[Rfam]
RNA sequence: UUAAUCCAAAUGAGUAUGAGUUUGGAACGUUUGCAUACGUUUGCCGCUAGAGGUGCUGUUCCAAUUGCAUACAAAUUCGAGUUA
Numbered sequence: 001u002u003a004a005u006c007c008a009a010a011u012g013a014g015u016a017u018g019a020g021u022u023u024g025g026a027a028c029g030u031u032u033g034c035a036u037a038c039g040u041u042u043g044c045c046g047c048u049a050g051a052g053g054u055g056c057u058g059u060u061c062c063a064a065u066u067g068c069a070u071a072c073a074a075a076u077u078c079g080a081g082u083u084a
Stems, first nucleotide, its partner, number of pairs: 009077003014072003018068001020066001022064008034052001036050001039047002
Dot-bracket structure: ........(((..(((.(.(.((((((((....(.(..((.....))..).)....)))))))).).).)))..))).......
RNA: mir-2807 microRNA precursor family
Organism: Bombyx mori